Annotation: Shown here is a 70-nucleotide RNA sequence from Streptococcus sp. sy004, a member of the family "L17 ribosomal protein downstream element". Pairs were carried over by alignment from the consensus structure, which is taken from published work. By type it is a cis-regulatory element. A search with the family's covariance model found it, with a score of 72 bits.
RNA sequence: UGAGUGUUAUGAUGUUGGAGACUUGUCUCUUAGUCUAGCUCUGGUCAACCGCUGAGCUUUUGCUCAGCGG
Numbered sequence: 001u002g003a004g005u006g007u008u009a010u011g012a013u014g015u016u017g018g019a020g021a022c023u024u025g026u027c028u029c030u031u032a033g034u035c036u037a038g039c040u041c042u043g044g045u046c047a048a049c050c051g052c053u054g055a056g057c058u059u060u061u062g063c064u065c066a067g068c069g070g
Stems, first nucleotide, its partner, number of pairs: 002041004011035003017030005049070009